[Rfam]
RNA sequence: UAAUAAUGGGGAGUGCAGAGGGAAUUCCCCUCGCCGGUUUAGAGGGGGUGCUCAGGAUGCUCACAUCCGUCGAAGGGGGA
Dot-bracket structure: ..............((.(((((.....)))))))....................(((((....)))))............
This 80-nucleotide RNA sequence from Anaerosolibacter carboniphilus belongs to the Rfam family "Clostridiales-2 RNA".
Taxonomically the source falls in Anaerosolibacter (Bacteria, Bacillota, Clostridia, Peptostreptococcales).